SAM riboswitch aptamer (S box leader): a 103-nucleotide RNA from Terrihalobacillus insolitus. Rfam describes the family as follows. The SAM riboswitch is found upstream of a number of genes which code for proteins involved in methionine or cysteine biosynthesis in Gram-positive bacteria.
[Rfam]
RNA sequence: UUCUUAUCUAGAGAGGUGGAGGGACUGGCCCUUUGAAGCCUCGGCAACAGACUUAAAUAGUACUGUGCCAAUUCCAGCAAGCGAUGUGCUUGAAAGAUAAGGA
Dot-bracket structure: ((((((((....(((((...(((.[[[[)))......)))))((((.((.(((.....)))..))))))...(]]]]((((((...))))))..)))))))))
Numbered sequence: 001u002u003c004u005u006a007u008c009u010a011g012a013g014a015g016g017u018g019g020a021g022g023g024a025c026u027g028g029c030c031c032u033u034u035g036a037a038g039c040c041u042c043g044g045c046a047a048c049a050g051a052c053u054u055a056a057a058u059a060g061u062a063c064u065g066u067g068c069c070a071a072u073u074c075c076a077g078c079a080a081g082c083g084a085u086g087u088g089c090u091u092g093a094a095a096g097a098u099a100a101g102g103a
Stems, first nucleotide, its partner, number of pairs: 001103008013042005021031003025077004043069004048065002051061003073095001078092006
Background:
The family's consensus secondary structure is taken from published work.